[Rfam]
RNA sequence: AGGUAAUGUCUACUAUACCUAUAUCAUUGUAGACACUCGAUCACGCUGUGGGUCAGCUGACCUUAGACAUGAAUUGUCGAGGGUGUGAUGUGAGGUAGGGUUAGAUGCCCU
Numbered sequence: 001a002g003g004u005a006a007u008g009u010c011u012a013c014u015a016u017a018c019c020u021a022u023a024u025c026a027u028u029g030u031a032g033a034c035a036c037u038c039g040a041u042c043a044c045g046c047u048g049u050g051g052g053u054c055a056g057c058u059g060a061c062c063u064u065a066g067a068c069a070u071g072a073a074u075u076g077u078c079g080a081g082g083g084u085g086u087g088a089u090g091u092g093a094g095g096u097a098g099g100g101u102u103a104g105a106u107g108c109c110c111u
Stems, first nucleotide, its partner, number of pairs: 001020004007035007036094004040089008050063005066078004097111005
epsC RNA: a 111-nucleotide RNA sequence from Paenibacillus phyllosphaerae. The source organism's lineage runs through Bacteria, Bacillota, Bacilli, Caryophanales and Paenibacillus. A search with the family's covariance model found it, with a score of 103 bits. The family's RNA type in Rfam is cis-regulatory element.